[Rfam]
RNA: permuted transfer-messenger RNA
RNA sequence: GGUAAUAGAGGGUUGCUUAUAAUAGAUAUUUUGGACUCGGAGGCGGUACCCGACACCUCCACCAUCUUAUUUUUGUUUACACUCAAGUAGUUAAUCUUUAGAAGCUUUUAAGUUAUGAUACACAAGUAUUUUCAUAGCACUUUAGCUAUAGAUGCAGGUCUGUUUUCUAUUUCUAAGCUUUGAUUCUAAAUAACAGCCUUGGUGUAAAAUAUACUAGUAUGGGGGUGAAACAGCUUCGACAUAUAUUUAAAAAAGCAAUUGUUACCCAGGAUGAUACCUUCUGUGAUGGGUCAAAAAAAGUAAAUGCAAAUAAAGUUUUUGCACCUGCUAACGAAAAUUUCGACAGCAGAGCUUUCGCUCUAGCUGCUUAA
Numbered sequence: 001g002g003u004a005a006u007a008g009a010g011g012g013u014u015g016c017u018u019a020u021a022a023u024a025g026a027u028a029u030u031u032u033g034g035a036c037u038c039g040g041a042g043g044c045g046g047u048a049c050c051c052g053a054c055a056c057c058u059c060c061a062c063c064a065u066c067u068u069a070u071u072u073u074u075g076u077u078u079a080c081a082c083u084c085a086a087g088u089a090g091u092u093a094a095u096c097u098u099u100a101g102a103a104g105c106u107u108u109u110a111a112g113u114u115a116u117g118a119u120a121c122a123c124a125a126g127u128a129u130u131u132u133c134a135u136a137g138c139a140c141u142u143u144a145g146c147u148a149u150a151g152a153u154g155c156a157g158g159u160c161u162g163u164u165u166u167c168u169a170u171u172u173c174u175a176a177g178c179u180u181u182g183a184u185u186c187u188a189a190a191u192a193a194c195a196g197c198c199u200u201g202g203u204g205u206a207a208a209a210u211a212u213a214c215u216a217g218u219a220u221g222g223g224g225g226u227g228a229a230a231c232a233g234c235u236u237c238g239a240c241a242u243a244u245a246u247u248u249a250a251a252a253a254a255g256c257a258a259u260u261g262u263u264a265c266c267c268a269g270g271a272u273g274a275u276a277c278c279u280u281c282u283g284u285g286a287u288g289g290g291u292c293a294a295a296a297a298a299a300g301u302a303a304a305u306g307c308a309a310a311u312a313a314a315g316u317u318u319u320u321g322c323a324c325c326u327g328c329u330a331a332c333g334a335a336a337a338u339u340u341c342g343a344c345a346g347c348a349g350a351g352c353u354u355u356c357g358c359u360c361u362a363g364c365u366g367c368u369u370a371a
Stems, first nucleotide, its partner, number of pairs: 001266005015256004027245003032241002037053004054227007267283004